[Rfam]
RNA sequence: GGGCAGGAUGGGUGAUGUAGUCCUACAAUGGUAAACCAUUGCAGACUUCAUCACUUUGACUUAUUCGCUCCCUUCGGGGCUCAACGUUCCUGCUCUGCGAGGCC
Numbered sequence: 001g002g003g004c005a006g007g008a009u010g011g012g013u014g015a016u017g018u019a020g021u022c023c024u025a026c027a028a029u030g031g032u033a034a035a036c037c038a039u040u041g042c043a044g045a046c047u048u049c050a051u052c053a054c055u056u057u058g059a060c061u062u063a064u065u066c067g068c069u070c071c072c073u074u075c076g077g078g079g080c081u082c083a084a085c086g087u088u089c090c091u092g093c094u095c096u097g098c099g100a101g102g103c104c
Stems, first nucleotide, its partner, number of pairs: 001095008012054006019047003026041004031036001060086001067080005

About this RNA:
A member of the RNA family "traJ-II RNA", 104 nucleotides long. Pairs were carried over by alignment from the consensus structure, which is taken from published work. It is one of the family's seed sequences.